[Rfam]
RNA: Proteo-phage-1 RNA
Organism: Pulveribacter suum
RNA sequence: CCCUAGCCGGGAAGGGGCCGCAAGGCGUAGCCCGGACGCGGAUAAGUCGGUGAGUGCCGCGAUUCAGCAAAACCCCGACAGCC
Numbered sequence: 001c002c003c004u005a006g007c008c009g010g011g012a013a014g015g016g017g018c019c020g021c022a023a024g025g026c027g028u029a030g031c032c033c034g035g036a037c038g039c040g041g042a043u044a045a046g047u048c049g050g051u052g053a054g055u056g057c058c059g060c061g062a063u064u065c066a067g068c069a070a071a072a073c074c075c076c077g078a079c080a081g082c083c
Base pairs, nucleotide, nucleotide: 001015002014004012007035008034009033010032011031017026018025019024037061038060039059040058041057046079047078048077049076050075